The family of this 97-nucleotide RNA sequence from Camellia sinensis is "Plastid-rps12 3UTR RNA". A reference for the family is Richter et al. (2023), "Retrograde signaling in plants: A critical review focusing on the GUN pathway and beyond", Plant Commun. From the family's description: Plastid rpl20 is a non-coding RNA (ncRNA) recognised in plastids. The source organism's lineage runs through Eukaryota, Embryophyta, Tracheophyta, Gunneridae and Camellia.

[Rfam]
RNA sequence: GGUUUCCAUUGGUUCAAAUCUAAUCACCUCAAUUUAAGAUGAGAAAAAAUUCCCCAUUGGUAUCAAAUGGUUAUCGAUUAAGUGGGAAAAAUGCAUU
Numbered sequence: 001g002g003u004u005u006c007c008a009u010u011g012g013u014u015c016a017a018a019u020c021u022a023a024u025c026a027c028c029u030c031a032a033u034u035u036a037a038g039a040u041g042a043g044a045a046a047a048a049a050u051u052c053c054c055c056a057u058u059g060g061u062a063u064c065a066a067a068u069g070g071u072u073a074u075c076g077a078u079u080a081a082g083u084g085g086g087a088a089a090a091a092u093g094c095a096u097u
Base pairs, nucleotide, nucleotide: 009023010022011021012020053086054085055084056078057077059075060074061073062072064070